[Rfam]
RNA sequence: AUGCCCAGUGAUUAUAAAAAGACGCGUUAUUCUGAGGGUUACAACCCGCUGCCAGUCUGUUCUCUUACUUCUACUCUGUCUUUUGUGCUUAUCCAUCUCUCCUCUCCUUUGUCCUCUUCCUCCUCUGUUUUUCUAACUGGUGGCUGGUCCGCUGACUGCGAUUAUGAGAUAUGAGGGCAU
Numbered sequence: 001a002u003g004c005c006c007a008g009u010g011a012u013u014a015u016a017a018a019a020a021g022a023c024g025c026g027u028u029a030u031u032c033u034g035a036g037g038g039u040u041a042c043a044a045c046c047c048g049c050u051g052c053c054a055g056u057c058u059g060u061u062c063u064c065u066u067a068c069u070u071c072u073a074c075u076c077u078g079u080c081u082u083u084u085g086u087g088c089u090u091a092u093c094c095a096u097c098u099c100u101c102c103u104c105u106c107c108u109u110u111g112u113c114c115u116c117u118u119c120c121u122c123c124u125c126u127g128u129u130u131u132u133c134u135a136a137c138u139g140g141u142g143g144c145u146g147g148u149c150c151g152c153u154g155a156c157u158g159c160g161a162u163u164a165u166g167a168g169a170u171a172u173g174a175g176g177g178c179a180u
Base pairs, nucleotide, nucleotide: 001180002179003178004177005176006175035100036099037098038097040095
About this RNA: The family of this 180-nucleotide sequence from Sphaeramia orbicularis is "Small nucleolar RNA SNORD97". Rfam 15.1 lists 639 matches to the family in 614 species. The match comes from Rfam's covariance-model search (66 bits).